[Rfam]
RNA sequence: UCCCUCCAAAUCCCUUUCCCACCAGAUCUGAAUACCGAUCUUGUGGUCGAAAAAGGAGGAAGAGUAACAUUCAUGCUGGUCUUAGGGCUCUCAGCAGGUGUGUCCUAUGCUGAGAGGGGCCACUGGGAAGACAGGC
Numbered sequence: 001u002c003c004c005u006c007c008a009a010a011u012c013c014c015u016u017u018c019c020c021a022c023c024a025g026a027u028c029u030g031a032a033u034a035c036c037g038a039u040c041u042u043g044u045g046g047u048c049g050a051a052a053a054a055g056g057a058g059g060a061a062g063a064g065u066a067a068c069a070u071u072c073a074u075g076c077u078g079g080u081c082u083u084a085g086g087g088c089u090c091u092c093a094g095c096a097g098g099u100g101u102g103u104c105c106u107a108u109g110c111u112g113a114g115a116g117g118g119g120c121c122a123c124u125g126g127g128a129a130g131a132c133a134g135g136c
Stems, first nucleotide, its partner, number of pairs: 003059005019046003023043001025040004079136004

Source information: Shown here is a 136-nucleotide RNA sequence from Zonotrichia albicollis, a member of the family "Small nucleolar RNA SNORA61". NCBI's taxonomy places the organism under Eukaryota, Opisthokonta, Tetrapoda, Sauropsida, Zonotrichia. The family's consensus secondary structure was predicted with PFOLD.